[Rfam]
This 120-nucleotide sequence from Prunus persica belongs to the Rfam family "MIR394 microRNA precursor family". The family has 19 seed sequences and 724 matches in Rfam 15.1. The base pairs follow the family's consensus structure, which was predicted with WAR.

RNA sequence: UUUACAGAGCCAGUUUGACAUGCUGACCACCUCCAGAGCUUGUAAAAUAAAAGAAAGAAACUUCUUCUAUGUGUACUAGUGAAUAUGGAGGUGGACAGAAUGCCAAAUUGCCUCUGCAAC
Dot-bracket structure: ..........(...(((.((...((.((((((((....................................................)))))))).))...)).)))...)..........